[Rfam]
RNA sequence: UAGUGAAAUAAAUCCUUACGGAUUUGUGAAAUACGCUUUGCGUGUGAAAUAUUCAUUCUGAAUGUGAAAUGCCUA
Numbered sequence: 001u002a003g004u005g006a007a008a009u010a011a012a013u014c015c016u017u018a019c020g021g022a023u024u025u026g027u028g029a030a031a032u033a034c035g036c037u038u039u040g041c042g043u044g045u046g047a048a049a050u051a052u053u054c055a056u057u058c059u060g061a062a063u064g065u066g067a068a069a070u071g072c073c074u075a
Base pairs, nucleotide, nucleotide: 008027009026010025011024012023013022014021015020031045032044033043034042035041049065050064051063052062053061054060055059
RNA: Gut-1 RNA